The record is a 91-nucleotide RNA from Nonomuraea wenchangensis, which matches "Selenocysteine transfer RNA" in Rfam. NCBI's taxonomy places the organism under Bacteria, Actinomycetota, Actinomycetes, Streptosporangiaceae, Nonomuraea.
[Rfam]
RNA sequence: GGAGGCGUUGGGUGCCUGGUGGCCCUCCCGGUCUACAAAACCGAUGGGGCGGCGUUCACGCCGCCGGCGGGUUCGAUUCCCGUUCGCCUCC
Numbered sequence: 001g002g003a004g005g006c007g008u009u010g011g012g013u014g015c016c017u018g019g020u021g022g023c024c025c026u027c028c029c030g031g032u033c034u035a036c037a038a039a040a041c042c043g044a045u046g047g048g049g050c051g052g053c054g055u056u057c058a059c060g061c062c063g064c065c066g067g068c069g070g071g072u073u074c075g076a077u078u079c080c081c082g083u084u085c086g087c088c089u090c091c
Stems, first nucleotide, its partner, number of pairs: 001091007011026002014023003027046001029043004048065005068082004